[Rfam]
RNA sequence: AAAACGGUCUUUUUCAAGACCACAAAAUGAUUUUAAGAGAAGAAA
Numbered sequence: 001a002a003a004a005c006g007g008u009c010u011u012u013u014u015c016a017a018g019a020c021c022a023c024a025a026a027a028u029g030a031u032u033u034u035a036a037g038a039g040a041a042g043a044a045a
Stems, first nucleotide, its partner, number of pairs: 006021006

Annotation
This 45-nucleotide RNA sequence from Polypedilum vanderplanki belongs to the Rfam family "Histone 3' UTR stem-loop". Pairs were carried over by alignment from the consensus structure, which is taken from published work. The family's RNA type in Rfam is cis-regulatory element. The family has 50 seed sequences and 44,596 matches in Rfam 15.1. The mRNAs of metazoan histone genes lack a poly-A tail. 3' end processing occurs at a site between a highly conserved stem-loop (modelled by this family) and a purine rich region around 20 nts downstream (the histone downstream element, or HDE). Gene Ontology term of the family: mRNA 3'-end processing by stem-loop binding and cleavage. It scores 34 bits against the family's covariance model.